[Rfam]
RNA sequence: AACUAUUACAGUCGAUGAGGAUAGGUUAUAGUUCAUGUGUAACAUCUGUGUUUUAAAAUAACUCUAGUUAUCCGGGGCGUUUUUCACAAAGUUUGUGUAAGAUGCUUUCCUGGGUCGAUGUGGAUUGUGCCGUGGCCUUUUUCACCACCUUUAUAGCGGUGCUUUAACUAUUAAUAACUGAGGCUG
Numbered sequence: 001a002a003c004u005a006u007u008a009c010a011g012u013c014g015a016u017g018a019g020g021a022u023a024g025g026u027u028a029u030a031g032u033u034c035a036u037g038u039g040u041a042a043c044a045u046c047u048g049u050g051u052u053u054u055a056a057a058a059u060a061a062c063u064c065u066a067g068u069u070a071u072c073c074g075g076g077g078c079g080u081u082u083u084u085c086a087c088a089a090a091g092u093u094u095g096u097g098u099a100a101g102a103u104g105c106u107u108u109c110c111u112g113g114g115u116c117g118a119u120g121u122g123g124a125u126u127g128u129g130c131c132g133u134g135g136c137c138u139u140u141u142u143c144a145c146c147a148c149c150u151u152u153a154u155a156g157c158g159g160u161g162c163u164u165u166a167a168c169u170a171u172u173a174a175u176a177a178c179u180g181a182g183g184c185u186g
Base pairs, nucleotide, nucleotide: 009186010185011184012183013182016144017143018142019141020140021139023138024137025136026135027134028133029127030126031125032124033123034122035121043120044119045118046117060069061068062067070115071114072113073112074111075110076109077105078104079103080102081101082100083099085097086096087095088094089093146161147160148159149158